[Rfam]
A member of the RNA family "Streptococcus sRNA SpF59 (ldcC RNA)" from Clostridium sp. CAG:1013, 54 nucleotides long. The family's RNA type in Rfam is small RNA. It is one of the family's seed sequences. On this family, see Mann et al., PLoS Pathog 2012: "Control of virulence by small RNAs in Streptococcus pneumoniae".
RNA sequence: AGACCACCCAGAGCGCUGGGUCAAGGCCAUACGGACAGCCGGGUCGAUCGCCGA
Numbered sequence: 001a002g003a004c005c006a007c008c009c010a011g012a013g014c015g016c017u018g019g020g021u022c023a024a025g026g027c028c029a030u031a032c033g034g035a036c037a038g039c040c041g042g043g044u045c046g047a048u049c050g051c052c053g054a
Base pairs, nucleotide, nucleotide: 002045003044004043005042006021007020008019009018010017011016